[Rfam]
RNA sequence: ACUUAUCUUAAAAGAAGCAAUAUCUCGGGGUACAAUUCCAUUUCGGGAUGGAAUGGUUUGGAGGAUACGGAUAAGGAUGGAGGUUUAGUACGUCUUGUCUGACAUGCGAAUCGUGCAUAUUGGUAGCUCGGGCUACCAAUAUCUUUCGAAGAUUGCCCAGCCUUUAGCUC
Numbered sequence: 001a002c003u004u005a006u007c008u009u010a011a012a013a014g015a016a017g018c019a020a021u022a023u024c025u026c027g028g029g030g031u032a033c034a035a036u037u038c039c040a041u042u043u044c045g046g047g048a049u050g051g052a053a054u055g056g057u058u059u060g061g062a063g064g065a066u067a068c069g070g071a072u073a074a075g076g077a078u079g080g081a082g083g084u085u086u087a088g089u090a091c092g093u094c095u096u097g098u099c100u101g102a103c104a105u106g107c108g109a110a111u112c113g114u115g116c117a118u119a120u121u122g123g124u125a126g127c128u129c130g131g132g133c134u135a136c137c138a139a140u141a142u143c144u145u146u147c148g149a150a151g152a153u154u155g156c157c158c159a160g161c162c163u164u165u166a167g168c169u170c
Base pairs, nucleotide, nucleotide: 023048024047025046026045027044028043056168057167072166073165074164075163076162078159079158080157088116089115090114091113092112094108096106097105118141119140120139121138122137123136
A member of the RNA family "R2 RNA element" from Scaptodrosophila lebanonensis, 170 nucleotides long. NCBI's taxonomy places the organism under Eukaryota, Ecdysozoa, Arthropoda, Endopterygota, Scaptodrosophila. Rfam describes the family as follows. This family represents the 3' UTR region of the R2 retrotransposable element. By type it is a cis-regulatory element. The literature on the family includes a 2004 paper in RNA by Ruschak et al., "Secondary structure models of the 3' untranslated regions of diverse R2 RNAs". Gene Ontology term of the family: regulation of reverse transcription. It scores 40 bits against the family's covariance model.